[Rfam]
RNA sequence: AGCUUAUCGGUGAUGUCUCAAAAUAAAUGUCUGAACAAAUGAUAUCACAGUGAUUUCAAUGUUUUUACUGAGAUAAGCU
Numbered sequence: 001a002g003c004u005u006a007u008c009g010g011u012g013a014u015g016u017c018u019c020a021a022a023a024u025a026a027a028u029g030u031c032u033g034a035a036c037a038a039a040u041g042a043u044a045u046c047a048c049a050g051u052g053a054u055u056u057c058a059a060u061g062u063u064u065u066u067a068c069u070g071a072g073a074u075a076a077g078c079u
Stems, first nucleotide, its partner, number of pairs: 002078007
The family of this 79-nucleotide sequence from Acipenser ruthenus is "Small nucleolar RNA SNORD72". A reference for the family is Huttenhofer et al. (2001), "RNomics: an experimental approach that identifies 201 candidates for novel, small, non-messenger RNAs in mouse", EMBO J. About the family: snoRNA HBII-240 belongs to the CD family of snoRNAs. Gene Ontology terms of the family: nucleolus and RNA processing. The match comes from Rfam's covariance-model search (75 bits). The organism belongs to Acipenser, within Eukaryota. The family's RNA type in Rfam is C/D-box small nucleolar RNA.